[Rfam]
RNA sequence: GGGACUUACUAUCAGGUAUUUUAUAUAAGCUUCAAAUAUGGUGAAGCGUAUCUACGGUGCACCCCAAAUGCCCUACUAUAAGAUCCCCCAGCUGUAUC
Numbered sequence: 001g002g003g004a005c006u007u008a009c010u011a012u013c014a015g016g017u018a019u020u021u022u023a024u025a026u027a028a029g030c031u032u033c034a035a036a037u038a039u040g041g042u043g044a045a046g047c048g049u050a051u052c053u054a055c056g057g058u059g060c061a062c063c064c065c066a067a068a069u070g071c072c073c074u075a076c077u078a079u080a081a082g083a084u085c086c087c088c089c090a091g092c093u094g095u096a097u098c
Stems, first nucleotide, its partner, number of pairs: 018084008029047006056074002059071003
Source information: Purine riboswitch aptamer: a 98-nucleotide sequence from Vibrio paucivorans. Its family is annotated with purine nucleobase biosynthetic process in the Gene Ontology. The source organism's lineage runs through Bacteria, Pseudomonadati, Vibrionales, Vibrionaceae and Vibrio. Riboswitches are metabolite binding domains within certain messenger RNAs that serve as precision sensors for their corresponding targets.